Record summary:
This 97-nucleotide sequence from Chenopodium quinoa belongs to the Rfam family "Small nucleolar RNA Z103". A reference for the family is Chen et al. (2003), "The high diversity of snoRNAs in plants: identification and comparative study of 120 snoRNA genes from Oryza sativa", Nucleic Acids Res. It is annotated as a C/D-box small nucleolar RNA. It scores 95 bits against the family's covariance model.
RNA sequence: AUGGAAGUGAUGAUUAUUUCCCCAGAUGAUCGAAGUUGAAAUCACUGAGCGUUUUUAAUUCUCAUUAUUGAUAAUUCAAGCCAGAAUUCUGAUCCAU
Numbered sequence: 001a002u003g004g005a006a007g008u009g010a011u012g013a014u015u016a017u018u019u020c021c022c023c024a025g026a027u028g029a030u031c032g033a034a035g036u037u038g039a040a041a042u043c044a045c046u047g048a049g050c051g052u053u054u055u056u057a058a059u060u061c062u063c064a065u066u067a068u069u070g071a072u073a074a075u076u077c078a079a080g081c082c083a084g085a086a087u088u089c090u091g092a093u094c095c096a097u
Stems, first nucleotide, its partner, number of pairs: 001097005